[Rfam]
RNA sequence: AUGAGGGUGACCGAAUGUGGGGAGGAAGCGUGGAGCGUAAAUCGUGAGCCGAUGAACAAGAACCGCAUAGAAGGCGCUGCCGAGCAGGGUGAGUGGGCCAUUUACCACGAAGCUCUUGUGACCAAGGCUUGGGCGGCGUAGAUGCGGCGGUUGUGCGAUGAAGGUGUGCGACC
Number, nucleotide and partner (000 for none) at each position: 001a016002u015003g000004a000005g012006g011007g000008u000009g000010a000011c006012c005013g000014a000015a002016u001017g000018u000019g000020g000021g000022g000023a000024g000025g000026a000027a000028g173029c000030g000031u170032g169033g000034a000035g165036c164037g000038u000039a000040a000041a159042u158043c157044g156045u155046g154047a152048g151049c150050c149051g148052a000053u000054g000055a000056a000057c000058a000059a000060g000061a000062a000063c147064c146065g145066c144067a143068u142069a000070g000071a000072a000073g000074g139075c138076g137077c000078u135079g000080c132081c131082g130083a129084g128085c127086a000087g115088g114089g113090u112091g000092a000093g108094u107095g106096g105097g000098c000099c000100a000101u000102u000103u000104a000105c096106c095107a094108c093109g000110a000111a000112g090113c089114u088115c087116u000117u000118g000119u000120g000121a000122c000123c000124a000125a000126g000127g085128c084129u083130u082131g081132g080133g000134c000135g078136g000137c076138g075139u074140a000141g000142a068143u067144g066145c065146g064147g063148c051149g050150g049151u048152u047153g000154u046155g045156c044157g043158a042159u041160g000161a000162a000163g000164g036165u035166g000167u000168g000169c032170g031171a000172c000173c028
The family of this 173-nucleotide sequence from Acidovorax temperans is "Group II catalytic intron D1-D4-3". The pairing is the family consensus, mapped onto this sequence. From the family's description: Group II introns are found in rRNA, tRNA and mRNA of organelles in fungi, plants and protists, and also in mRNA in bacteria. A search with the family's covariance model found it, with a score of 112 bits.